[Rfam]
RNA sequence: ACCCAGCCUGCCCAGUGUUCAGACUACCUGUUCCUAACGGCUACAGCUGAACAGUAGUCUGCACAUUGGUUAGGCCAGGCU
Numbered sequence: 001a002c003c004c005a006g007c008c009u010g011c012c013c014a015g016u017g018u019u020c021a022g023a024c025u026a027c028c029u030g031u032u033c034c035u036a037a038c039g040g041c042u043a044c045a046g047c048u049g050a051a052c053a054g055u056a057g058u059c060u061g062c063a064c065a066u067u068g069g070u071u072a073g074g075c076c077a078g079g080c081u
Base pairs, nucleotide, nucleotide: 012069013068014067015066016065017064018063020061021060022059023058024057025056026055028054029053030052031051033049

The record is an 81-nucleotide RNA sequence from Poecilia reticulata, which matches "mir-199 microRNA precursor family" in Rfam. Pairs were carried over by alignment from the consensus structure, which was predicted with RNAalifold. Its family is annotated with RISC complex and miRNA-mediated post-transcriptional gene silencing in the Gene Ontology. Lineage of the source: Eukaryota > Neoteleostei > Acanthomorphata > Cyprinodontoidei > Poecilia. About the family: This family consists of the microRNA (miRNA) precursor mir-199 which appears to be specific to humans. Animal miRNAs are transcribed as ~70nt precursors and subsequently processed by the Dicer enzyme to give a ~22nt product. In this case the mature sequence comes from the 3' arm of the precursor. The extents of the hairpin precursors are not generally known and are estimated based on hairpin prediction.